Molybdenum/Tungsten riboswitch aptamer (Moco RNA motif): a 110-nucleotide RNA from Allolucifera butyrica.
RNA sequence: ACCGAAUAUUACUUCCGAUUUAUUAUCAUCCCACGGGGAGGUAAUAAACGUCAGGGUACGGUGAGCAAUUACCGUGCCUGCCAUUGCGCAAAGGAAGAGGUACUAAAAAA
Dot-bracket structure: ...(.(.....(((((..(((((((((.(((....))).))))))))).....(((((((((((....)))))))))))((......))...)))))...).).......
Numbered sequence: 001a002c003c004g005a006a007u008a009u010u011a012c013u014u015c016c017g018a019u020u021u022a023u024u025a026u027c028a029u030c031c032c033a034c035g036g037g038g039a040g041g042u043a044a045u046a047a048a049c050g051u052c053a054g055g056g057u058a059c060g061g062u063g064a065g066c067a068a069u070u071a072c073c074g075u076g077c078c079u080g081c082c083a084u085u086g087c088g089c090a091a092a093g094g095a096a097g098a099g100g101u102a103c104u105a106a107a108a109a110a
Stems, first nucleotide, its partner, number of pairs: 004103001006101001012097005019048009029038003054079011080089002
The family's consensus secondary structure is taken from published work.